[Rfam]
RNA sequence: GGGAGUCACUGGGAGAGCUCGGGGAAGGCCGGGCUGAGAGUGCGGGCUUUGUCUGUGAGGGCAUCCCCCGCUGAUCCCUUCAACCCGAACCAGAUAAUGCUGGCGUGGGGAAGUGGCGACGGGGAGAC
Numbered sequence: 001g002g003g004a005g006u007c008a009c010u011g012g013g014a015g016a017g018c019u020c021g022g023g024g025a026a027g028g029c030c031g032g033g034c035u036g037a038g039a040g041u042g043c044g045g046g047c048u049u050u051g052u053c054u055g056u057g058a059g060g061g062c063a064u065c066c067c068c069c070g071c072u073g074a075u076c077c078c079u080u081c082a083a084c085c086c087g088a089a090c091c092a093g094a095u096a097a098u099g100c101u102g103g104c105g106u107g108g109g110g111a112a113g114u115g116g117c118g119a120c121g122g123g124g125a126g127a128c
Stems, first nucleotide, its partner, number of pairs: 006116005011078004016072001017034005042071004084109004090103004
Rfam assigns this 128-nucleotide RNA from Lujinxingia litoralis to the family "TPP riboswitch aptamer (THI element)". The family's consensus secondary structure is taken from published work. Rfam links the family to the GO term thiamine pyrophosphate binding. Vitamin B(1) in its active form thiamin pyrophosphate (TPP) is an essential coenzyme that is synthesised by coupling of pyrimidine and thiazole moieties in bacteria.